[Rfam]
RNA: ACEA small nucleolar RNA U3
Organism: Monosiga brevicollis
RNA sequence: AUGACCACACUCUACAGGAUCUUUUGUAUAGUUGGUCUCCCGUCAUCGUACUCCUACGUUGACAAACCCUAAACGCACGAUGAAGAUAGAGAGGUCCAUCACCUGAGCGUGAGGCAGGAUCAUCGUCCUACUCCUUUGUGGGCAGGCGCUGAUUCCUCGAUGACCGUGCGCUACCGUAUGGCUCUUCGUGAGCAACGGUAGCACUGGUGGUUGGAUCAUUCCGAAUGCG
Number, nucleotide and partner (000 for none) at each position: 001a000002u000003g037004a000005c035006c034007a000008c000009a032010c031011u030012c000013u000014a000015c000016a027017g000018g025019a024020u000021c000022u000023u000024u019025u018026g000027u016028a000029u000030a011031g010032u009033u000034g006035g005036u000037c003038u000039c000040c000041c000042g063043u062044c061045a060046u000047c058048g057049u056050a055051c000052u000053c000054c000055u050056a049057c048058g047059u000060u045061g044062a043063c042064a000065a000066a000067c000068c000069c000070u000071a000072a000073a000074c229075g228076c227077a226078c000079g000080a000081u000082g000083a000084a000085g000086a000087u000088a000089g000090a000091g000092a000093g000094g216095u215096c214097c213098a212099u210100c209101a208102c207103c206104u000105g000106a000107g167108c166109g165110u000111g000112a000113g000114g000115c000116a000117g155118g154119a153120u152121c151122a150123u000124c000125g000126u000127c000128c000129u000130a000131c000132u000133c000134c000135u000136u000137u000138g000139u000140g000141g000142g000143c000144a000145g000146g000147c000148g000149c000150u122151g121152a120153u119154u118155c117156c000157u000158c000159g000160a000161u000162g000163a000164c000165c109166g108167u107168g204169c000170g202171c201172u000173a199174c198175c197176g196177u195178a000179u000180g000181g000182c000183u000184c000185u000186u000187c000188g000189u000190g000191a000192g000193c000194a000195a177196c176197g175198g174199u173200a000201g171202c170203a000204c168205u000206g103207g102208u101209g100210g099211u000212u098213g097214g096215a095216u094217c000218a000219u000220u000221c000222c000223g000224a000225a000226u077227g076228c075229g074